[Rfam]
RNA sequence: GUGCGACCUCCGCCGAGUCCGGUACGCCCCACGGCAUCCGGAGCCGGGGACCCGAUCGGCAUCGGGGUGAAUCGGCUUUCCCGUCCCUUCGGACGGGGGCCGCGGGGCACGCCUCCACAGAACGUCCGUCCGAACCCGGCAGCUGACUCGGCGGGCGGCCUAGUGGUAAGGA
Numbered sequence: 001g002u003g004c005g006a007c008c009u010c011c012g013c014c015g016a017g018u019c020c021g022g023u024a025c026g027c028c029c030c031a032c033g034g035c036a037u038c039c040g041g042a043g044c045c046g047g048g049g050a051c052c053c054g055a056u057c058g059g060c061a062u063c064g065g066g067g068u069g070a071a072u073c074g075g076c077u078u079u080c081c082c083g084u085c086c087c088u089u090c091g092g093a094c095g096g097g098g099g100c101c102g103c104g105g106g107g108c109a110c111g112c113c114u115c116c117a118c119a120g121a122a123c124g125u126c127c128g129u130c131c132g133a134a135c136c137c138g139g140c141a142g143c144u145g146a147c148u149c150g151g152c153g154g155g156c157g158g159c160c161u162a163g164u165g166g167u168a169a170g171g172a
Stems, first nucleotide, its partner, number of pairs: 011157004018042005043152006053064002065137003073102008105131004
This 172-nucleotide sequence from Streptomyces sp. F-3 belongs to the Rfam family "c-di-AMP riboswitch aptamer (ydaO/yuaA leader)". The organism belongs to Streptomyces, within Bacteria.